Overview: The family of this 102-nucleotide sequence from Yersinia ruckeri is "ArcZ RNA".
RNA sequence: GUAUCAACGAAUCCCGACAACCUGCGAAUACGACCAGAAAUUAAUACGCAGGUUCACGUUUUCCCUGGUGUUGGCGCAGUAUUCGCGCACCCCGGCCUCGGU
Number, nucleotide and partner (000 for none) at each position: 001g000002u000003a000004u000005c000006a000007a000008c000009g000010a000011a000012u000013c000014c000015c000016g000017a000018c000019a054020a053021c052022c051023u050024g049025c048026g047027a000028a000029u000030a000031c000032g000033a000034c000035c000036a000037g000038a000039a000040a000041u000042u000043a000044a000045u000046a000047c026048g025049c024050a023051g022052g021053u020054u019055c000056a000057c000058g000059u000060u000061u000062u000063c000064c000065c000066u000067g091068g090069u089070g000071u000072u000073g000074g088075c087076g086077c085078a000079g000080u000081a000082u000083u000084c000085g077086c076087g075088c074089a069090c068091c067092c000093c000094g000095g000096c000097c000098u000099c000100g000101g000102u000

Taxonomically the source falls in Yersinia (Bacteria, Pseudomonadati, Pseudomonadota, Gammaproteobacteria). From the family's description: This RNA was discovered in E. coli during a large scale screen. SraH expression is highly abundant in stationary phase, but low levels could be detected in exponentially growing cells as well. ArcZ RNA function as an activator of the alternative sigma factor RpoS as a response of stress. ArcZ afects and is also affected by the ArcA-ArcB regulon (aerobic/anaerobic-sensing ArcA-ArcB two-component). Rfam links the family to the GO terms regulation of translation and protein binding. The base pairs follow the family's consensus structure, which was predicted with PFOLD.